[Rfam]
RNA sequence: GGCUCUCAGAGGUGGGAACGGCCUCCCCACACACCACCGGCGCUGUGGCGCAGGUGGUACAGUAGCUCUGACAGAGUACAGUUGCUCUGGCAGAGUGAAGAGAUCCGGGCGUGGGCACCCCGGCUAGAGCC
Numbered sequence: 001g002g003c004u005c006u007c008a009g010a011g012g013u014g015g016g017a018a019c020g021g022c023c024u025c026c027c028c029a030c031a032c033a034c035c036a037c038c039g040g041c042g043c044u045g046u047g048g049c050g051c052a053g054g055u056g057g058u059a060c061a062g063u064a065g066c067u068c069u070g071a072c073a074g075a076g077u078a079c080a081g082u083u084g085c086u087c088u089g090g091c092a093g094a095g096u097g098a099a100g101a102g103a104u105c106c107g108g109g110c111g112u113g114g115g116c117a118c119c120c121c122g123g124c125u126a127g128a129g130c131c
Stems, first nucleotide, its partner, number of pairs: 001131006009124001012030005021116004032100001033058006105123005
skipping-rope RNA: a 131-nucleotide sequence.
The sequence is in the family's curated seed alignment.
Rfam classes the family as a small RNA.